MIR812 microRNA precursor family: a 199-nucleotide RNA from Oryza meridionalis. NCBI's taxonomy places the organism under Eukaryota, Viridiplantae, Embryophyta, Spermatophyta, Oryza. A search with the family's covariance model found it, with a score of 116 bits.

[Rfam]
RNA sequence: UUUAAGUGUAGUUGUAGAUUUCUUUGUCCAACGUUUAACAGUCCGUCUUAUUUAAAAUUUUUUAUGAUUAGUAUUUUUCUUGAUAUUAAAUGAUAAAAUAUGAAUAGUGCUUUAUGCGUACUUAUUUUUUAAUUUUUUUAUAAUUAUUUUAAAUAAGAUGAAUGGUUAAAGUUGGAUAAAAAAACGAAAAGGACCGAGA
Numbered sequence: 001u002u003u004a005a006g007u008g009u010a011g012u013u014g015u016a017g018a019u020u021u022c023u024u025u026g027u028c029c030a031a032c033g034u035u036u037a038a039c040a041g042u043c044c045g046u047c048u049u050a051u052u053u054a055a056a057a058u059u060u061u062u063u064a065u066g067a068u069u070a071g072u073a074u075u076u077u078u079c080u081u082g083a084u085a086u087u088a089a090a091u092g093a094u095a096a097a098a099u100a101u102g103a104a105u106a107g108u109g110c111u112u113u114a115u116g117c118g119u120a121c122u123u124a125u126u127u128u129u130u131a132a133u134u135u136u137u138u139u140a141u142a143a144u145u146a147u148u149u150u151a152a153a154u155a156a157g158a159u160g161a162a163u164g165g166u167u168a169a170a171g172u173u174g175g176a177u178a179a180a181a182a183a184a185c186g187a188a189a190a191g192g193a194c195c196g197a198g199a
Stems, first nucleotide, its partner, number of pairs: 027176006034170006041163002044160008